[Rfam]
RNA sequence: GGAUAAUCCCGGGUGACCGGGGAAAGGCUGGCGGAAGCUGGUUCCGCCCUCCCCUCCAGAGCGCGAUAGCGUAAUGUGAGGCAUAUAUCACCAGUUCCUCUGGCCGGAGUCGUGUCCGGUCAGUUCACACACGAAUCAGGAACUGAGCGGCGAGGCGCGAUUAGAAACCGCGCCGAGUCGAGUCAGGCCCACGGGACGUUUCGACCCGUGCGCCGACGCAGUUACCCCAGAGGGUUAUGGUUGCUACUGCGCAGACCAGAACGCAGUCGCGUUUCCUGGCGGGACGACCCCGCCAAAAGGCCCCACUCGCCGCACGAGGGGGGCACGCAAAGGAAGCGCGGCCGCGGGGAGAGAGCGGACCUAGGCAAAGUCCGUGCAACCUCCUCACUGGGGCGGUCCCGCAAAACGGGUUCGCCCUACUGCAAAAGCCAAAAGCAACCUGAGAGGUAAGAGGUCAGACCCGUAACGUAGGGCAAACGGCCGGCCAAAAGCUGGCGCUGUCCCUGCGGUCAUGGUGCCGACGCGAGAAAGUGAAAGUUUGCAGGCGUGUCAGCACCACGUCCGGCGAGCCGCUCCCGGCAGGGAGCGUCCGAACCGGGCGAAGAGGCCUCACUCGAAAGUUCCCGACCGGCAACGGUCAGGACGGUCCCGUCAUGAGACCGAGACAUCCGCAUGCCGCGGAGAGUGGCGUCGGGAAGCACACCGCCCGCGAAAGCGAGAGCGCCCAAGCGUGUGCCGCCGGGAAAGAGCGCGUGGCGAACGCC
Numbered sequence: 001g002g003a004u005a006a007u008c009c010c011g012g013g014u015g016a017c018c019g020g021g022g023a024a025a026g027g028c029u030g031g032c033g034g035a036a037g038c039u040g041g042u043u044c045c046g047c048c049c050u051c052c053c054c055u056c057c058a059g060a061g062c063g064c065g066a067u068a069g070c071g072u073a074a075u076g077u078g079a080g081g082c083a084u085a086u087a088u089c090a091c092c093a094g095u096u097c098c099u100c101u102g103g104c105c106g107g108a109g110u111c112g113u114g115u116c117c118g119g120u121c122a123g124u125u126c127a128c129a130c131a132c133g134a135a136u137c138a139g140g141a142a143c144u145g146a147g148c149g150g151c152g153a154g155g156c157g158c159g160a161u162u163a164g165a166a167a168c169c170g171c172g173c174c175g176a177g178u179c180g181a182g183u184c185a186g187g188c189c190c191a192c193g194g195g196a197c198g199u200u201u202c203g204a205c206c207c208g209u210g211c212g213c214c215g216a217c218g219c220a221g222u223u224a225c226c227c228c229a230g231a232g233g234g235u236u237a238u239g240g241u242u243g244c245u246a247c248u249g250c251g252c253a254g255a256c257c258a259g260a261a262c263g264c265a266g267u268c269g270c271g272u273u274u275c276c277u278g279g280c281g282g283g284a285c286g287a288c289c290c291c292g293c294c295a296a297a298a299g300g301c302c303c304c305a306c307u308c309g310c311c312g313c314a315c316g317a318g319g320g321g322g323g324c325a326c327g328c329a330a331a332g333g334a335a336g337c338g339c340g341g342c343c344g345c346g347g348g349g350a351g352a353g354a355g356c357g358g359a360c361c362u363a364g365g366c367a368a369a370g371u372c373c374g375u376g377c378a379a380c381c382u383c384c385u386c387a388c389u390g391g392g393g394c395g396g397u398c399c400c401g402c403a404a405a406a407c408g409g410g411u412u413c414g415c416c417c418u419a420c421u422g423c424a425a426a427a428g429c430c431a432a433a434a435g436c437a438a439c440c441u442g443a444g445a446g447g448u449a450a451g452a453g454g455u456c457a458g459a460c461c462c463g464u465a466a467c468g469u470a471g472g473g474c475a476a477a478c479g480g481c482c483g484g485c486c487a488a489a490a491g492c493u494g495g496c497g498c499u500g501u502c503c504c505u506g507c508g509g510u511c512a513u514g515g516u517g518c519c520g521a522c523g524c525g526a527g528a529a530a531g532u533g534a535a536a537g538u539u540u541g542c543a544g545g546c547g548u549g550u551c552a553g554c555a556c557c558a559c560g561u562c563c564g565g566c567g568a569g570c571c572g573c574u575c576c577c578g579g580c581a582g583g584g585a586g587c588g589u590c591c592g593a594a595c596c597g598g599g600c601g602a603a604g605a606g607g608c609c610u611c612a613c614u615c616g617a618a619a620g621u622u623c624c625c626g627a628c629c630g631g632c633a634a635c636g637g638u639c640a641g642g643a644c645g646g647u648c649c650c651g652u653c654a655u656g657a658g659a660c661c662g663a664g665a666c667a668u669c670c671g672c673a674u675g676c677c678g679c680g681g682a683g684a685g686u687g688g689c690g691u692c693g694g695g696a697a698g699c700a701c702a703c704c705g706c707c708c709g710c711g712a713a714a715g716c717g718a719g720a721g722c723g724c725c726c727a728a729g730c731g732u733g734u735g736c737c738g739c740c741g742g743g744a745a746a747g748a749g750c751g752c753g754u755g756g757c758g759a760a761c762g763c764c
Base pairs, nucleotide, nucleotide: 008021009020010019011018012017026052027051030048031047032046033045034044035043036042061072062071063070064069092145093144094143095142096141097140098139099138104119105118106117107116108115110134111133112132113131114130148180149179150178151177154174155173156172157171158170164202165201166200167199168198186214187213188212190210191209192208193207194206195205217251218250219249220248221247225233226232239440240439241438242437243436244435278294279293280292281291282290283289300324301323302322303321304320346386347385348384349383350382351381355375356374357373358372359371360370398410399409400408401407444615445614446613451611452610453609454608467508468507469506470505471504472503473502480496481495482494483493484492485491516555517554518553520551521550522549523548524547525546560600561599562598563597564596565595569591571588572587573586574585575584576583577582622643623642624641626639627638628637629636630635644662645661646660647659648658651689652688653687654686668682669681670680671679672678698736699735700734701733702732703731704729705722706721708717709716710715749763750762751761